[Rfam]
RNA sequence: AGCUGGCCUGAGUGCAGUGGUGUUUACAGCUAAUUGAUCACAACCAGUUACAGAUUUCUUUGUUCCUUCUCUACUUCUCCACUCCCACUGCUUGACCAGCCUAAA
Numbered sequence: 001a002g003c004u005g006g007c008c009u010g011a012g013u014g015c016a017g018u019g020g021u022g023u024u025u026a027c028a029g030c031u032a033a034u035u036g037a038u039c040a041c042a043a044c045c046a047g048u049u050a051c052a053g054a055u056u057u058c059u060u061u062g063u064u065c066c067u068u069c070u071c072u073a074c075u076u077c078u079c080c081a082c083u084c085c086c087a088c089u090g091c092u093u094g095a096c097c098a099g100c101c102u103a104a105a
Stems, first nucleotide, its partner, number of pairs: 002100005008094001010093002014088001016083005022078001028064003032060002
Shown here is a 105-nucleotide RNA from Prolemur simus, a member of the family "Y RNA". A reference for the family is Chen et al. (2000), "Ro ribonucleoproteins contribute to the resistance of Deinococcus radiodurans to ultraviolet irradiation", Genes Dev. It scores 45 bits against the family's covariance model.